RNA: Small nucleolar RNA SNORA26
Organism: Sphenodon punctatus
RNA sequence: UUGCCCUCUUGAAGCUGACUGUGCUUUAAGUGGCCAACACAGAGGGGUAUAGCGAUUCUCUCUUAAACCCAGAGGCGAGAUUAAAACUCCUCUUUGGAUCCUGUCGGGAGAGACAAGU
Numbered sequence: 001u002u003g004c005c006c007u008c009u010u011g012a013a014g015c016u017g018a019c020u021g022u023g024c025u026u027u028a029a030g031u032g033g034c035c036a037a038c039a040c041a042g043a044g045g046g047g048u049a050u051a052g053c054g055a056u057u058c059u060c061u062c063u064u065a066a067a068c069c070c071a072g073a074g075g076c077g078a079g080a081u082u083a084a085a086a087c088u089c090c091u092c093u094u095u096g097g098a099u100c101c102u103g104u105c106g107g108g109a110g111a112g113a114c115a116a117g118u
Stems, first nucleotide, its partner, number of pairs: 002049006009042002014038001016036002019030001056112001058110005069097007077089003081086001